[Rfam]
RNA sequence: GGCGAUAAACGAUCAGCGUAAUAAGCCUUUCGGACCCGGGGCGGUACUGGCGCCUCCACCGGAGCCCGUUUCGCGAAGCGGGCUCCGGCGGGGGCGAAAUAGGAUCGACGAGGGUGUAAAGGUUGGUUUUUGCCCGGCAUGAUACCACCGUUAUCGGGUCAACCUUAUAGUUGCCAACGACAACUAUGCUCCGGUGGCCGUCGCCGCGUAA
Numbered sequence: 001g002g003c004g005a006u007a008a009a010c011g012a013u014c015a016g017c018g019u020a021a022u023a024a025g026c027c028u029u030u031c032g033g034a035c036c037c038g039g040g041g042c043g044g045u046a047c048u049g050g051c052g053c054c055u056c057c058a059c060c061g062g063a064g065c066c067c068g069u070u071u072c073g074c075g076a077a078g079c080g081g082g083c084u085c086c087g088g089c090g091g092g093g094g095c096g097a098a099a100u101a102g103g104a105u106c107g108a109c110g111a112g113g114g115u116g117u118a119a120a121g122g123u124u125g126g127u128u129u130u131u132g133c134c135c136g137g138c139a140u141g142a143u144a145c146c147a148c149c150g151u152u153a154u155c156g157g158g159u160c161a162a163c164c165u166u167a168u169a170g171u172u173g174c175c176a177a178c179g180a181c182a183a184c185u186a187u188g189c190u191c192c193g194g195u196g197g198c199c200g201u202c203g204c205c206g207c208g209u210a211a
Stems, first nucleotide, its partner, number of pairs: 001134005014125004026114003030111003036050004051096007135150003
A member of the RNA family "permuted transfer-messenger RNA" from Rhodoblastus sp., 211 nucleotides long. Taxonomically the source falls in Rhodoblastus (Bacteria, Pseudomonadati, Hyphomicrobiales, Rhodoblastaceae). Rfam describes the family as follows. Bacterial tmRNA, also known as 10Sa RNA or SsrA, is named for its dual tRNA and mRNA-like properties.